[Rfam]
Fluoride riboswitch aptamer (crcB RNA motif): an 82-nucleotide RNA from Segniliparus rotundus. The family's consensus secondary structure is taken from published work.
Nucleotides: 082
Stems, first nucleotide, its partner, number of pairs: 010026004016073003020069002050063003
Number, partner (000 for none) and nucleotide at each position: 001000c002000c003000c004000a005000g006000a007000c008000a009000c010026g011025g012024c013023g014000a015000u016073g017072g018071a019000u020069c021068u022000c023013c024012g025011c026010c027000g028000g029000g030000a031000c032000a033000g034000a035000c036000u037000u038000c039000c040000u041000g042000u043000c044000c045000g046000a047000a048000c049000c050063g051062c052061c053000c054000c055000c056000a057000a058000c059000g060000a061052g062051g063050c064000u065000g066000a067000u068021g069020g070000c071018u072017c073016c074000u075000u076000c077000g078000c079000a080000u081000g082000a